Rfam assigns this 90-nucleotide RNA from Triticum aestivum to the family "Small nucleolar RNA R44/J54/Z268 family". The family is grouped with related families in Rfam's "SNORD74 clan".
[Rfam]
RNA sequence: GAAGCAGGUGAUGACACCAAGACAGGGACAUCAGAACCAUGUAAUGGGUAUGAUAGACCAAGUCUAUAAUGGGAAUCUCUCUGAUGUUAU
Number, nucleotide and partner (000 for none) at each position: 001g000002a000003a088004g087005c086006a085007g000008g000009u000010g000011a000012u000013g000014a000015c000016a000017c000018c000019a000020a000021g000022a000023c000024a000025g000026g000027g000028a000029c000030a000031u000032c000033a000034g000035a000036a000037c000038c000039a000040u000041g000042u000043a000044a000045u000046g000047g000048g000049u000050a000051u000052g000053a000054u000055a000056g000057a000058c000059c000060a000061a000062g000063u000064c000065u000066a000067u000068a000069a000070u000071g000072g000073g000074a000075a000076u000077c000078u000079c000080u000081c000082u000083g000084a000085u006086g005087u004088u003089a000090u000
Source information: Rfam links the family to the GO terms nucleolus and RNA processing. Rfam classes the family as a C/D-box small nucleolar RNA.